This 132-nucleotide RNA from Paenibacillus psychroresistens belongs to the Rfam family "Ribosomal protein L20 leader".

[Rfam]
RNA sequence: AACCCAAAGCAGAAGCGCCCGCUUCUCACCUGACCGACAUACGUUGGCUGGUUCAUGCUAAAGUAUUUUUCCUACUUAUGAGUGGAUCGUUUAAGAUGUGGGCUGCGUAUGCCUACAUCUUUUUUUAUGUUU
Numbered sequence: 001a002a003c004c005c006a007a008a009g010c011a012g013a014a015g016c017g018c019c020c021g022c023u024u025c026u027c028a029c030c031u032g033a034c035c036g037a038c039a040u041a042c043g044u045u046g047g048c049u050g051g052u053u054c055a056u057g058c059u060a061a062a063g064u065a066u067u068u069u070u071c072c073u074a075c076u077u078a079u080g081a082g083u084g085g086a087u088c089g090u091u092u093a094a095g096a097u098g099u100g101g102g103c104u105g106c107g108u109a110u111g112c113c114u115a116c117a118u119c120u121u122u123u124u125u126u127a128u129g130u131u132u
Base pairs, nucleotide, nucleotide: 011026012025013024014023015022016021028052029051030050034047035046036045037044038043095119096118097117098116099115100114101113102112103111
About the family: This family is a putative r-protein leader autoregulatory structure found in B. subtilis and other low-GC Gram-positive bacteria. It is located in the 5' untranslated regions of mRNAs encoding initiation factor 3 followed by ribosomal proteins L35 and L20 (infC-rpmI-rplT). A Rho-independent transcription terminator structure that is probably involved in regulation is included at the 3' end.